[Rfam]
RNA sequence: ACUUUAAGUCUCUUUUCAGGGUGCCACAGGCAAAGCUGGGGACCCAGGGAGAGACGUAAGU
Numbered sequence: 001a002c003u004u005u006a007a008g009u010c011u012c013u014u015u016u017c018a019g020g021g022u023g024c025c026a027c028a029g030g031c032a033a034a035g036c037u038g039g040g041g042a043c044c045c046a047g048g049g050a051g052a053g054a055c056g057u058a059a060g061u
Stems, first nucleotide, its partner, number of pairs: 001061004008055009019045004024040002027038003

Shown here is a 61-nucleotide sequence from Equus caballus, a member of the family "mir-711 microRNA precursor family". The organism belongs to Equus, within Eukaryota. A reference for the family is Zhou et al. (2009), "In silico detection and characteristics of novel microRNA genes in the Equus caballus genome using an integrated ab initio and comparative genomic approach", Genomics.